[Rfam]
RNA sequence: GGAGGAAUGGCAGAGCGGUCGAAUGCGGCAGUCUUGAAAACUGUUGACUGUAACAGGUCCGGGGGUUCGAAUCCCUCUUCCUCCG
Numbered sequence: 001g002g003a004g005g006a007a008u009g010g011c012a013g014a015g016c017g018g019u020c021g022a023a024u025g026c027g028g029c030a031g032u033c034u035u036g037a038a039a040a041c042u043g044u045u046g047a048c049u050g051u052a053a054c055a056g057g058u059c060c061g062g063g064g065g066u067u068c069g070a071a072u073c074c075c076u077c078u079u080c081c082u083c084c085g
Stems, first nucleotide, its partner, number of pairs: 001084007010026003028044005061077005
The record is an 85-nucleotide RNA from Flavobacterium bizetiae, which matches "tRNA" in Rfam. The family's RNA type in Rfam is transfer RNA. Pairs were carried over by alignment from the consensus structure, which is taken from published work. Its family is annotated with triplet codon-amino acid adaptor activity in the Gene Ontology.